[Rfam]
RNA sequence: UAUAACUCUCUGGGGUGGUUUAGCAAUAAACCUGAGAUCAUACCCAUACUACCUGAUCUGGGUAAUGCCAGCGCAGGGAUGAGAGAAAAAGGUUCAG
Number, nucleotide and partner (000 for none) at each position: 001u000002a000003u000004a000005a000006c085007u084008c083009u082010c081011u046012g045013g044014g043015g000016u040017g032018g031019u030020u029021u028022a000023g000024c000025a000026a000027u000028a021029a020030a019031c018032c017033u000034g000035a000036g000037a000038u000039c000040a016041u000042a000043c014044c013045c012046a011047u000048a000049c000050u000051a000052c077053c076054u075055g074056a000057u000058c071059u070060g069061g068062g000063u000064a000065a000066u000067g000068c061069c060070a059071g058072c000073g000074c055075a054076g053077g052078g000079a000080u000081g010082a009083g008084a007085g006086a000087a000088a000089a000090a000091g000092g000093u000094u000095c000096a000097g000

This 97-nucleotide RNA sequence from Flavisolibacter tropicus belongs to the Rfam family "TPP riboswitch aptamer (THI element)". Vitamin B(1) in its active form thiamin pyrophosphate (TPP) is an essential coenzyme that is synthesised by coupling of pyrimidine and thiazole moieties in bacteria. Taxonomically the source falls in Flavisolibacter (Bacteria, Pseudomonadati, Chitinophagia, Chitinophagales).